[Rfam]
This 114-nucleotide RNA from Bacillus sp. B1-b2 belongs to the Rfam family "PyrR binding site".
The literature on the family includes a 2001 paper in Nucleic Acids Res by Bonner et al., "Molecular recognition of pyr mRNA by the Bacillus subtilis attenuation regulatory protein PyrR".
A search with the family's covariance model found it, with a score of 63 bits.
The base pairs follow the family's consensus structure, which is taken from published work.
NCBI's taxonomy places the organism under Bacteria, Bacilli, Caryophanales, Bacillaceae, Bacillus.
By type it is a cis-regulatory element.
About the family: This family represents the PyrR binding site and terminator structure. This RNA structure is found upstream of a variety of genes involved in pyrimidine biosynthesis and transport. The alignment also includes a portion of the antiterminator structure.
RNA sequence: AAGUCCUUUAAAUCAAUCCCGUGAGGUUGAGAAGGAAACGGUGAAUAGCUACUAGGAUAGCUAUAUAGAAAACACGUGUAUCCUCUCAUCCAUUAGGGUGUGAGGAUAUUUUUU
Dot-bracket structure: ...((((((...((((((......)))))))))))).....((.(((((((......))))))).))..........((((((((.(((((....))))).)))))))).....